[Rfam]
RNA sequence: UGAAUUUGCUAGGGGUGCUUAAUUGCUGAGAGGCCUGUGCCGACCCUUUGAACUUGAUGUGGAUAAUCCCAACGCAGGAAAGCAAUGUUUUAUUGAU
Numbered sequence: 001u002g003a004a005u006u007u008g009c010u011a012g013g014g015g016u017g018c019u020u021a022a023u024u025g026c027u028g029a030g031a032g033g034c035c036u037g038u039g040c041c042g043a044c045c046c047u048u049u050g051a052a053c054u055u056g057a058u059g060u061g062g063a064u065a066a067u068c069c070c071a072a073c074g075c076a077g078g079a080a081a082g083c084a085a086u087g088u089u090u091u092a093u094u095g096a097u
Base pairs, nucleotide, nucleotide: 006085007084008083009082010081011047012046013045014044017026018025033040034039053078054077055076056075060071061070062069
The record is a 97-nucleotide sequence from Pseudocoprococcus catus, which matches "TPP riboswitch aptamer (THI element)" in Rfam. From the family's description: Vitamin B(1) in its active form thiamin pyrophosphate (TPP) is an essential coenzyme that is synthesised by coupling of pyrimidine and thiazole moieties in bacteria. Pairs were carried over by alignment from the consensus structure, which is taken from published work. Lineage of the source: Bacteria > Bacillati > Lachnospirales > Lachnospiraceae > Pseudocoprococcus.